[Rfam]
RNA sequence: GGAGAUGGCUCUGGAAAAUCUCAGCAAUGAGUGCCGAAGGUGUAAGGCCCCGCGCGGGUUGAAUCUCUCAGGCAAAGAGGACAGGGCAGGAAAC
Numbered sequence: 001g002g003a004g005a006u007g008g009c010u011c012u013g014g015a016a017a018a019u020c021u022c023a024g025c026a027a028u029g030a031g032u033g034c035c036g037a038a039g040g041u042g043u044a045a046g047g048c049c050c051c052g053c054g055c056g057g058g059u060u061g062a063a064u065c066u067c068u069c070a071g072g073c074a075a076a077g078a079g080g081a082c083a084g085g086g087c088a089g090g091a092a093a094c
Stems, first nucleotide, its partner, number of pairs: 006089001008087006020031004033073003036069002040067001042065001046060005
RNA: Glycine riboswitch aptamer
Organism: Firmicutes bacterium CAG:129